[Rfam]
RNA: Small Cajal body specific RNA 24
RNA sequence: AAGACAUUUUAAAAACCUCAUGUUGUUCUCAAGGUGAAGAUAACUUUUUAUAAAUGUCCUAAAGAAAUAUAGUAGCUUUCUGUUUAUCCUUUUUGCAAGAAGAGAGGGUGGAACGUUCACUACGGACAUUC
Numbered sequence: 001a002a003g004a005c006a007u008u009u010u011a012a013a014a015a016c017c018u019c020a021u022g023u024u025g026u027u028c029u030c031a032a033g034g035u036g037a038a039g040a041u042a043a044c045u046u047u048u049u050a051u052a053a054a055u056g057u058c059c060u061a062a063a064g065a066a067a068u069a070u071a072g073u074a075g076c077u078u079u080c081u082g083u084u085u086a087u088c089c090u091u092u093u094u095g096c097a098a099g100a101a102g103a104g105a106g107g108g109u110g111g112a113a114c115g116u117u118c119a120c121u122a123c124g125g126a127c128a129u130u131c
Base pairs, nucleotide, nucleotide: 003058004057005056006055007054008053009052020045023042024040026038027037028036070125072123073122074121075120089106090105091104092103